[Rfam]
Nucleotides: 059
Base pairs, nucleotide, nucleotide: 006053007052009051010050011049012048022043023042024041025040026039027038028037029036
Number, partner (000 for none) and nucleotide at each position: 001000u002000g003000u004000g005000g006053u007052g008000a009051c010050c011049g012048g013000g014000c015000c016000c017000c018000u019000c020000u021000g022043g023042c024041g025040a026039a027038u028037g029036u030000g031000g032000c033000g034000g035000c036029a037028c038027a039026u040025u041024c042023g043022u044000g045000a046000u047000g048012u049011c050010g051009g052007c053006a054000c055000u056000u057000u058000c059000c
Shown here is a 59-nucleotide RNA from Paracoccus isoporae, a member of the family "terC RNA". The family has 129 seed sequences and 1,112 matches in Rfam 15.1. By type it is a cis-regulatory element. The organism belongs to Paracoccus, within Bacteria.